[Rfam]
RNA sequence: UGGGUCGGCAAGACGGUCGCGCCGCGGAGGAUCCCGAGAGGGGGAGACCGCGUCGAGGAACGUCCGGGCUCCGCAGAGCAGGGCGGUGGGUAACACCCACCCGGGGCGACCCGCGAGACAGUGCAACAGAGAGCAGACCGCCCGUCGCGCGAGCGGCGGGUGAGGGUGAAACGGCGGUGUAAGAGACCACCAGCGGCCCGAGUGAUCGGGUCGGCUAUGCAAACCUCGCCCGGAGCAAGGUCGAACAGGGGACGCACAGGCUGCUCGUCCAGUCCCCGGGUAGACCGCUGGAGGGCUGCGGUGACGCAGCUCCGAGAUAGAUGGCCGUCCAUGGUGCCGCGAGGCACCGGGACAGAACCCGGCGUAUCAGCCGGCCCAUCCG
Dot-bracket structure: (((((((((.((((((((.((.(((((....................))))).))....[[[.[[[[[((((...[[[[.((((((((((.....)))))(((((....)))).)((...(((((............(((((((((((....)))))))))..)).......((.(((.......))).)).(((((((((....)))))))).)..)))..)))))))))))))...((((.....((((((.....(((.]]]])))..)))))).....))))......((((((((....))))))))..........)))))))............................]]]]]]]].)..)))))))))....
Record summary: Shown here is a 382-nucleotide RNA from Clavibacter michiganensis, a member of the family "Bacterial RNase P class A". From the family's description: Ribonuclease P (RNase P) is a ubiquitous endoribonuclease, found in archaea, bacteria and eukarya as well as chloroplasts and mitochondria. NCBI's taxonomy places the organism under Bacteria, Actinomycetota, Micrococcales, Microbacteriaceae, Clavibacter michiganensis subsp. michiganensis. It is annotated as a ribozyme.